Shown here is a 73-nucleotide RNA sequence from Spirochaeta lutea, a member of the family "tRNA".
RNA sequence: GGGCCGCUAGCUCAGCUGGUAGAGCAACGCCCUUUUAAGGCGUGGGUCACUGGUUCGAAUCCAGUGCGGCUCA
Numbered sequence: 001g002g003g004c005c006g007c008u009a010g011c012u013c014a015g016c017u018g019g020u021a022g023a024g025c026a027a028c029g030c031c032c033u034u035u036u037a038a039g040g041c042g043u044g045g046g047u048c049a050c051u052g053g054u055u056c057g058a059a060u061c062c063a064g065u066g067c068g069g070c071u072c073a
Base pairs, nucleotide, nucleotide: 001072002071003070004069005068006067007066010025011024012023013022027043028042029041030040031039049065050064051063052062053061
From the family's description: Transfer RNA (tRNA) molecules are approximately 80 nucleotides in length. Their secondary structure includes four short double-helical elements and three loops (D, anti-codon, and T loops). Further hydrogen bonds mediate the characteristic L-shaped molecular structure. tRNAs have two regions of fundamental functional importance: the anti-codon, which is responsible for specific mRNA codon recognition, and the 3' end, to which the tRNAs corresponding amino acid is attached (by aminoacyl-tRNA synthetases). tRNAs cope with the degeneracy of the genetic code in two manners: having more than one tRNA (with a specific anti-codon) for a particular amino acid; and 'wobble' base-pairing, i.e. permitting non-standard base-pairing at the 3rd anti-codon position. The organism belongs to Spirochaeta, within Bacteria. The family's RNA type in Rfam is transfer RNA.